[Rfam]
RNA sequence: CCAGUCCGAAAGCCACGAUGCUCUCUCCCCACAAGGUACACCCUCGCGGUUCGUAUCUCAUUCGAGAGCGGGCUAAGGUCUGAGCUUUCCAAUCUCCCUCGAUCGGCUCUUGCCGGGUCCGGCUACAAUAUGCCAAACGACAUACCAGAAAUACAGCCAGCUCUCUCAUUGUUACCCCAAGAUCCUACAUGUAGGGGAGGGUCCUGAGGUUGCAAGGUUUCGGGAAAUGUCGUGGAGACUGGAUGAGCGACUCUGAUCUGGGCGGAUUACGCGCUGUGAACCCUCAGACGGUUGCUCAUCCUUGAGUUCACUUCGUGGCUCAUGGUCCAUCAACCAUGUAACUCGAUUCAUACUACUCUUGGACUGG
Numbered sequence: 001c002c003a004g005u006c007c008g009a010a011a012g013c014c015a016c017g018a019u020g021c022u023c024u025c026u027c028c029c030c031a032c033a034a035g036g037u038a039c040a041c042c043c044u045c046g047c048g049g050u051u052c053g054u055a056u057c058u059c060a061u062u063c064g065a066g067a068g069c070g071g072g073c074u075a076a077g078g079u080c081u082g083a084g085c086u087u088u089c090c091a092a093u094c095u096c097c098c099u100c101g102a103u104c105g106g107c108u109c110u111u112g113c114c115g116g117g118u119c120c121g122g123c124u125a126c127a128a129u130a131u132g133c134c135a136a137a138c139g140a141c142a143u144a145c146c147a148g149a150a151a152u153a154c155a156g157c158c159a160g161c162u163c164u165c166u167c168a169u170u171g172u173u174a175c176c177c178c179a180a181g182a183u184c185c186u187a188c189a190u191g192u193a194g195g196g197g198a199g200g201g202u203c204c205u206g207a208g209g210u211u212g213c214a215a216g217g218u219u220u221c222g223g224g225a226a227a228u229g230u231c232g233u234g235g236a237g238a239c240u241g242g243a244u245g246a247g248c249g250a251c252u253c254u255g256a257u258c259u260g261g262g263c264g265g266a267u268u269a270c271g272c273g274c275u276g277u278g279a280a281c282c283c284u285c286a287g288a289c290g291g292u293u294g295c296u297c298a299u300c301c302u303u304g305a306g307u308u309c310a311c312u313u314c315g316u317g318g319c320u321c322a323u324g325g326u327c328c329a330u331c332a333a334c335c336a337u338g339u340a341a342c343u344c345g346a347u348u349c350a351u352a353c354u355a356c357u358c359u360u361g362g363a364c365u366g367g
Stems, first nucleotide, its partner, number of pairs: 001367004007361003012319007020069005034058006081350004087237004105119005121134003137233007155219003321338006
The record is a 367-nucleotide sequence from Hypsizygus marmoreus, which matches "Nuclear RNase P" in Rfam. The family is grouped with related families in Rfam's "RNaseP clan". Rfam's curators write: Ribonuclease P (RNase P) is a ubiquitous endoribonuclease, found in archaea, bacteria and eukarya as well as chloroplasts and mitochondria. Its best characterised activity is the generation of mature 5'-ends of tRNAs by cleaving the 5'-leader elements of precursor-tRNAs.